[Rfam]
RNA sequence: UGCAACCGGGAUCGCCCUCCGUCAGCGCGUUGCGCCCACGGGGGCAAAACCA
Numbered sequence: 001u002g003c004a005a006c007c008g009g010g011a012u013c014g015c016c017c018u019c020c021g022u023c024a025g026c027g028c029g030u031u032g033c034g035c036c037c038a039c040g041g042g043g044g045c046a047a048a049a050c051c052a
Stems, first nucleotide, its partner, number of pairs: 016044007025035004
A member of the RNA family "ffh sRNA" from Roseobacter denitrificans, 52 nucleotides long. The organism belongs to Roseobacter denitrificans, within Bacteria. The base pairs follow the family's consensus structure, which is taken from published work.